RNA sequence: UUGAAGGUGUGGAGACUGAAGUCCUGUCUAUAUCCACAGAACAGGUAUGGCACAGGCCGCGGCAGUGCAGCUUUUCCACUGUCCCACCAAUGUGCCUCUGUCUGAGUUAGCCUAAGGGGAACAUGGCUAGGGUAAGAGGGCUGUUCAGUCUCCACACCCUUCAAUCUUUGGCUGCU
Numbered sequence: 001u002u003g004a005a006g007g008u009g010u011g012g013a014g015a016c017u018g019a020a021g022u023c024c025u026g027u028c029u030a031u032a033u034c035c036a037c038a039g040a041a042c043a044g045g046u047a048u049g050g051c052a053c054a055g056g057c058c059g060c061g062g063c064a065g066u067g068c069a070g071c072u073u074u075u076c077c078a079c080u081g082u083c084c085c086a087c088c089a090a091u092g093u094g095c096c097u098c099u100g101u102c103u104g105a106g107u108u109a110g111c112c113u114a115a116g117g118g119g120a121a122c123a124u125g126g127c128u129a130g131g132g133u134a135a136g137a138g139g140g141c142u143g144u145u146c147a148g149u150c151u152c153c154a155c156a157c158c159c160u161u162c163a164a165u166c167u168u169u170g171g172c173u174g175c176u
Stems, first nucleotide, its partner, number of pairs: 002163003006158002010154011023140003027137001029136001031134004037104003047097001050095005061083005107130006
TUC338: a 176-nucleotide sequence from Oryctolagus cuniculus. A reference for the family is Braconi et al. (2011), "Expression and functional role of a transcribed noncoding RNA with an ultraconserved element in hepatocellular carcinoma", Proc Natl Acad Sci U S A. It is one of the family's seed sequences. The family's RNA type in Rfam is cis-regulatory element.